[Rfam]
RNA: TPP riboswitch aptamer (THI element)
RNA sequence: GGCCUUCACCCGGGGGGUCCCGACAAGGGGCUGAGAUUCUGAUCGCCGGUCCGAGCGGGACCGGCAGCGCAGUGACCCGAAGAACCUGAUCCAGUUCAUACUGGCGUAGGGAUGGUGUUCGGGUCUCGCG
Numbered sequence: 001g002g003c004c005u006u007c008a009c010c011c012g013g014g015g016g017g018u019c020c021c022g023a024c025a026a027g028g029g030g031c032u033g034a035g036a037u038u039c040u041g042a043u044c045g046c047c048g049g050u051c052c053g054a055g056c057g058g059g060a061c062c063g064g065c066a067g068c069g070c071a072g073u074g075a076c077c078c079g080a081a082g083a084a085c086c087u088g089a090u091c092c093a094g095u096u097c098a099u100a101c102u103g104g105c106g107u108a109g110g111g112a113u114g115g116u117g118u119u120c121g122g123g124u125c126u127c128g129c130g
Stems, first nucleotide, its partner, number of pairs: 007117004011079004016073001017031005039072003085110004091104004